[Rfam]
RNA sequence: UCUAGAACUCAAGAUAUGGGCUGAACACUAAACAAUAUCUGGGUUGCAAGACAGAUUCUGACUUCUCUAUUGUUGCUAAGAUUUCGACUUCCAAACAUCAGAAUUGGGUCUUACACUCUGCAUGAAUGUUUUAGGCCUAUGUCUUAGCUUUCUAUC
Numbered sequence: 001u002c003u004a005g006a007a008c009u010c011a012a013g014a015u016a017u018g019g020g021c022u023g024a025a026c027a028c029u030a031a032a033c034a035a036u037a038u039c040u041g042g043g044u045u046g047c048a049a050g051a052c053a054g055a056u057u058c059u060g061a062c063u064u065c066u067c068u069a070u071u072g073u074u075g076c077u078a079a080g081a082u083u084u085c086g087a088c089u090u091c092c093a094a095a096c097a098u099c100a101g102a103a104u105u106g107g108g109u110c111u112u113a114c115a116c117u118c119u120g121c122a123u124g125a126a127u128g129u130u131u132u133a134g135g136c137c138u139a140u141g142u143c144u145u146a147g148c149u150u151u152c153u154a155u156c
Stems, first nucleotide, its partner, number of pairs: 003154005008147002011145010021134005027129002035123002041119003045115002048112005054105007063097001072088003
The family of this 156-nucleotide RNA sequence from Populus alba is "MIR2912 microRNA precursor family". The family has 2 seed sequences and 15,051 matches in Rfam 15.1. The match comes from Rfam's covariance-model search (151 bits). Rfam links the family to the GO terms miRNA-mediated post-transcriptional gene silencing and RISC complex.